[Rfam]
RNA sequence: AAGCAGCUCUUAGGCAACAACGGGGAAUUUUAAUAGCAAUGUUAAAUUAGAAGUUGGCUAUUUGCUGGAACAUCCUUAAAGCUUUAAAGACUUGAUUUGCUCCCUACUGCUCUGCUGCGAAAGCAACAGGCAACUUAUUUAGUUAGGGGUUGCUUAAGCUAAAGCAGAGCAACUGUAUUGCAGCAACAAGUGAAAAUUUUAAAGAUUGGACAAUCAGCAGGGAAGUUAAUAAUAUAAAUUAGUGUAAGCAACUGUAAUAUUUUAACCCCUCAACGACUACACGCCAAUAUCCAGAAGCUUUGUAAUUGUAUUCUUACACUGGAUAAAGAUAUAGUCUAAACUUGACUGAAAGGUUAAG
Numbered sequence: 001a002a003g004c005a006g007c008u009c010u011u012a013g014g015c016a017a018c019a020a021c022g023g024g025g026a027a028u029u030u031u032a033a034u035a036g037c038a039a040u041g042u043u044a045a046a047u048u049a050g051a052a053g054u055u056g057g058c059u060a061u062u063u064g065c066u067g068g069a070a071c072a073u074c075c076u077u078a079a080a081g082c083u084u085u086a087a088a089g090a091c092u093u094g095a096u097u098u099g100c101u102c103c104c105u106a107c108u109g110c111u112c113u114g115c116u117g118c119g120a121a122a123g124c125a126a127c128a129g130g131c132a133a134c135u136u137a138u139u140u141a142g143u144u145a146g147g148g149g150u151u152g153c154u155u156a157a158g159c160u161a162a163a164g165c166a167g168a169g170c171a172a173c174u175g176u177a178u179u180g181c182a183g184c185a186a187c188a189a190g191u192g193a194a195a196a197u198u199u200u201a202a203a204g205a206u207u208g209g210a211c212a213a214u215c216a217g218c219a220g221g222g223a224a225g226u227u228a229a230u231a232a233u234a235u236a237a238a239u240u241a242g243u244g245u246a247a248g249c250a251a252c253u254g255u256a257a258u259a260u261u262u263u264a265a266c267c268c269c270u271c272a273a274c275g276a277c278u279a280c281a282c283g284c285c286a287a288u289a290u291c292c293a294g295a296a297g298c299u300u301u302g303u304a305a306u307u308g309u310a311u312u313c314u315u316a317c318a319c320u321g322g323a324u325a326a327a328g329a330u331a332u333a334g335u336c337u338a339a340a341c342u343u344g345a346c347u348g349a350a351a352g353g354u355u356a357a358g
Stems, first nucleotide, its partner, number of pairs: 005029002008026004013021001033043001053288006063219006073210003220269002228261001233256004273337001275336005290323005343356005